[Rfam]
Rfam assigns this 67-nucleotide sequence from Lentibacillus salicampi to the family "Bacillaceae-1 RNA". It scores 47 bits against the family's covariance model. Taxonomically the source falls in Lentibacillus (Bacteria, Bacillati, Caryophanales, Bacillaceae). Rfam 15.1 lists 5,721 matches to the family in 247 species.
RNA sequence: GGGAGGCGCCGGCCGGCUAAGAUUCGGCACGUCCUGUGCCAGCGCCGGCACUAGUACGUCCUGUACG
Numbered sequence: 001g002g003g004a005g006g007c008g009c010c011g012g013c014c015g016g017c018u019a020a021g022a023u024u025c026g027g028c029a030c031g032u033c034c035u036g037u038g039c040c041a042g043c044g045c046c047g048g049c050a051c052u053a054g055u056a057c058g059u060c061c062u063g064u065a066c067g
Stems, first nucleotide, its partner, number of pairs: 012049006026040005054066004